[Rfam]
RNA sequence: AUACUUACCUGGCAGGGGAGAUACCAUGAUCGAAGGUGGCUUUCCCAGGGCAAAGCUUAUCCAUUGCGCCGCGGAUGUGCUGAUCCCUGCGAUUUCCCCAAAUGUGAGAAACUCGACUGCAUAAUUUGUGGUAGUGGGGGACUGCGUUCAAGCUUUCUCCUG
Number, nucleotide and partner (000 for none) at each position: 001a000002u000003a000004c000005u000006u000007a000008c000009c000010u000011g000012g120013c119014a118015g117016g046017g045018g044019a043020g042021a041022u000023a000024c039025c038026a037027u036028g000029a000030u000031c000032g000033a000034a000035g000036g027037u026038g025039g024040c000041u021042u020043u019044c018045c017046c016047a088048g087049g086050g085051c000052a084053a000054a081055g080056c079057u000058u077059a076060u075061c074062c073063a000064u000065u000066g000067c000068g000069c000070c000071g000072c000073g062074g061075a060076u059077g058078u000079g056080c055081u054082g000083a000084u052085c050086c049087c048088u047089g000090c115091g114092a113093u111094u110095u109096c000097c000098c106099c000100a000101a000102a000103u000104g000105u000106g098107a000108g000109a095110a094111a093112c000113u092114c091115g090116a000117c015118u014119g013120c012121a000122u000123a000124a000125u000126u000127u000128g000129u000130g000131g000132u000133a000134g000135u000136g161137g160138g159139g158140g157141a156142c000143u000144g153145c152146g000147u000148u000149c000150a000151a000152g145153c144154u000155u000156u141157c140158u139159c138160c137161u136162g000
Rfam assigns this 162-nucleotide RNA sequence from Callithrix jacchus to the family "U1 spliceosomal RNA". NCBI's taxonomy places the organism under Eukaryota, Bilateria, Teleostomi, Callithrix, Callithrix. For this family Rfam cites "The uRNA database" (Zwieb, Nucleic Acids Res, 1997). Rfam's curators write: U1 is a small nuclear RNA (snRNA) component of the spliceosome (involved in pre-mRNA splicing).